c-di-GMP-I riboswitch aptamer: a 75-nucleotide RNA sequence from Desulfuromonas sp. DDH964. It scores 44 bits against the family's covariance model. Lineage of the source: Bacteria > Pseudomonadati > Thermodesulfobacteriota > Desulfuromonadaceae > Desulfuromonas. From the family's description: GEMM was predicted in a large-scale screen for bacterial structured RNA regulatory elements.
RNA sequence: AGCCGACAAGACUAAACCAUCCGUGAGGAUGGGGCGGAAAGCCCAGGGUCUCUUUGAGAUGGCCGGGAUGCCGAA
Numbered sequence: 001a002g003c004c005g006a007c008a009a010g011a012c013u014a015a016a017c018c019a020u021c022c023g024u025g026a027g028g029a030u031g032g033g034g035c036g037g038a039a040a041g042c043c044c045a046g047g048g049u050c051u052c053u054u055u056g057a058g059a060u061g062g063c064c065g066g067g068a069u070g071c072c073g074a075a
Stems, first nucleotide, its partner, number of pairs: 012037002017032006040069001042067002046064002048060005